Rfam assigns this 83-nucleotide sequence from Pantherophis guttatus to the family "mir-181 microRNA precursor family". A reference for the family is Ambros (2001), "microRNAs: tiny regulators with great potential", Cell. The organism belongs to Pantherophis, within Eukaryota. The base pairs follow the family's consensus structure, which was predicted with PFOLD. It scores 71 bits against the family's covariance model.
[Rfam]
RNA sequence: AGUUCUCUGGGAACAUUCAACGCUGUCGGUGAGUUUUGUCAAUGAGGUCAAACCAUCGACUGUUGAGUGUACCCUGCGGCCUU
Number, nucleotide and partner (000 for none) at each position: 001a083002g082003u000004u079005c078006u000007c076008u000009g000010g000011g000012a000013a000014c069015a068016u067017u066018c065019a064020a063021c062022g061023c000024u000025g060026u059027c058028g057029g056030u055031g054032a000033g053034u052035u051036u050037u000038g000039u000040c000041a000042a000043u000044g000045a000046g000047g000048u000049c000050a036051a035052a034053c033054c031055a030056u029057c028058g027059a026060c025061u022062g021063u020064u019065g018066a017067g016068u015069g014070u000071a000072c000073c000074c000075u000076g007077c000078g005079g004080c000081c000082u002083u001